[Rfam]
RNA: c-di-AMP riboswitch aptamer (ydaO/yuaA leader)
RNA sequence: GAGUCGGGCUCGCCUAAUCGCGACCAGCGAGCCGGGGACCCAUCGCACCUCGGGGUGAAUCCGUGGACCUACAACCAUCAGCCACGGUAGGGCAAACCAUCUUUCCCGCCCGAACCCGUCAGCUAACCCGGUCGGCGAAACGGGAAGGAGAC
Numbered sequence: 001g002a003g004u005c006g007g008g009c010u011c012g013c014c015u016a017a018u019c020g021c022g023a024c025c026a027g028c029g030a031g032c033c034g035g036g037g038a039c040c041c042a043u044c045g046c047a048c049c050u051c052g053g054g055g056u057g058a059a060u061c062c063g064u065g066g067a068c069c070u071a072c073a074a075c076c077a078u079c080a081g082c083c084a085c086g087g088u089a090g091g092g093c094a095a096a097c098c099a100u101c102u103u104u105c106c107c108g109c110c111c112g113a114a115c116c117c118g119u120c121a122g123c124u125a126a127c128c129c130g131g132u133c134g135g136c137g138a139a140a141c142g143g144g145a146a147g148g149a150g151a152c
Base pairs, nucleotide, nucleotide: 011137012136013135014134018030019029020028031132032131033130034129035128036127041052053117054116055115061087062086063085064084065083066082090111091110092109093108